Rfam assigns this 196-nucleotide RNA sequence from Pseudomonas pohangensis to the family "RgsA sRNA". Pairs were carried over by alignment from the consensus structure, which was predicted with RNAalifold. On this family, see Livny et al., Nucleic Acids Res 2006: "Identification of 17 Pseudomonas aeruginosa sRNAs and prediction of sRNA-encoding genes in 10 diverse pathogens using the bioinformatic tool sRNAPredict2".
RNA sequence: CAACAGCCCCUCGGGUAUUCCAAAUACGUUUAAAAAUUAGUGCUGGCCCGGCUGGAAGUUCACUGGAACUGAACAAUACUUUCAGUUACCGGCGUGUAGUGCUCCCCCCCAAGCGCUCCGCUGGUAUCAGGUACCGUGGAUUGUGUACCUUUGUGUUACUCCUAAUGGUAUUGCCCGGAUUCCCCCCUGAGUCCGG
Numbered sequence: 001c002a003a004c005a006g007c008c009c010c011u012c013g014g015g016u017a018u019u020c021c022a023a024a025u026a027c028g029u030u031u032a033a034a035a036a037u038u039a040g041u042g043c044u045g046g047c048c049c050g051g052c053u054g055g056a057a058g059u060u061c062a063c064u065g066g067a068a069c070u071g072a073a074c075a076a077u078a079c080u081u082u083c084a085g086u087u088a089c090c091g092g093c094g095u096g097u098a099g100u101g102c103u104c105c106c107c108c109c110c111a112a113g114c115g116c117u118c119c120g121c122u123g124g125u126a127u128c129a130g131g132u133a134c135c136g137u138g139g140a141u142u143g144u145g146u147a148c149c150u151u152u153g154u155g156u157u158a159c160u161c162c163u164a165a166u167g168g169u170a171u172u173g174c175c176c177g178g179a180u181u182c183c184c185c186c187c188u189g190a191g192u193c194c195g196g
Base pairs, nucleotide, nucleotide: 040169041168043167088125089124090123091122095120096119098117100115101114102113126152129150130149131148132147133146134145135143175196176195177194178193180191181190182189
About the family: This small RNA (sRNA) was computationally identified in the genome of the opportunistic pathogen Pseudomonas aeruginosa and its expression verified by northern blot analysis. P16 sRNA appears to be conserved across several Pseudomonas species and Azotobacter vinelandii. In these species it is consistently located downstream of a predicted TatD deoxyribonuclease gene.
The match comes from Rfam's covariance-model search (116 bits).